The record is a 171-nucleotide sequence from Limnohabitans sp. 2KL-17, which matches "ZMP/ZTP riboswitch aptamer (pfl RNA motif)" in Rfam.
NCBI's taxonomy places the organism under Bacteria, Pseudomonadati, Betaproteobacteria, Comamonadaceae, Limnohabitans.
It scores 41 bits against the family's covariance model.
Pairs were carried over by alignment from the consensus structure, which is taken from published work.
[Rfam]
RNA sequence: UACGCAGUGCGCGACUGGCGAUAGGAGCCCUCUCUUGAACAACAAGGCGGGACCACUCUGACGUGGAGCGCGGUGGCACCAAGCCACCCCCGAACCACUGGGAAGCGCACACCCGAUACUGGCCCAGUAAGGCCUGACCCGGGUUUUCAGCCGUUCGCCUGGGCAGCCCUU
Numbered sequence: 001u002a003c004g005c006a007g008u009g010c011g012c013g014a015c016u017g018g019c020g021a022u023a024g025g026a027g028c029c030c031u032c033u034c035u036u037g038a039a040c041a042a043c044a045a046g047g048c049g050g051g052a053c054c055a056c057u058c059u060g061a062c063g064u065g066g067a068g069c070g071c072g073g074u075g076g077c078a079c080c081a082a083g084c085c086a087c088c089c090c091c092g093a094a095c096c097a098c099u100g101g102g103a104a105g106c107g108c109a110c111a112c113c114c115g116a117u118a119c120u121g122g123c124c125c126a127g128u129a130a131g132g133c134c135u136g137a138c139c140c141g142g143g144u145u146u147u148c149a150g151c152c153g154u155u156c157g158c159c160u161g162g163g164c165a166g167c168c169c170u171u
Base pairs, nucleotide, nucleotide: 004113007110008109009108010107011106012105015102016101017159018158019157020156021155063098064097065096066095148166150164151163152162